This 76-nucleotide RNA sequence from Alligator sinensis belongs to the Rfam family "Mammalian CPEB3 ribozyme". The family's consensus secondary structure is taken from published work. Rfam links the family to the GO term RNA nuclease activity.
[Rfam]
RNA sequence: GGUGCAAAUUCAAGGCCAUAGCAGAAGUGCUCAUGGAGCAGCCCUGUCAGAAUCCAAUAAAUCUGCAAAUUCUGCU
Numbered sequence: 001g002g003u004g005c006a007a008a009u010u011c012a013a014g015g016c017c018a019u020a021g022c023a024g025a026a027g028u029g030c031u032c033a034u035g036g037a038g039c040a041g042c043c044c045u046g047u048c049a050g051a052a053u054c055c056a057a058u059a060a061a062u063c064u065g066c067a068a069a070u071u072c073u074g075c076u
Base pairs, nucleotide, nucleotide: 014043015042016041020076021075022074023073024072025071026070027039028038048065049064050063051062053060